The record is a 101-nucleotide RNA from Simplicispira hankyongi, which matches "Glycine riboswitch aptamer" in Rfam. The source organism's lineage runs through Bacteria, Pseudomonadota, Betaproteobacteria, Burkholderiales and Simplicispira.
[Rfam]
RNA sequence: UUCCACAGGUCAGGAGAGAGCGCCCGCCCCGCACCGGGGCUGCGGCGCCGCCGAAGGCGCAGGUUCACCGAACGCUCAGGCAAAAGGACUGGCAACCGCCC
Numbered sequence: 001u002u003c004c005a006c007a008g009g010u011c012a013g014g015a016g017a018g019a020g021c022g023c024c025c026g027c028c029c030c031g032c033a034c035c036g037g038g039g040c041u042g043c044g045g046c047g048c049c050g051c052c053g054a055a056g057g058c059g060c061a062g063g064u065u066c067a068c069c070g071a072a073c074g075c076u077c078a079g080g081c082a083a084a085a086g087g088a089c090u091g092g093c094a095a096c097c098g099c100c101c
Base pairs, nucleotide, nucleotide: 009093010092011091012090013089020048021047022046023045050081051080052079053077054076057075058074059073062069063068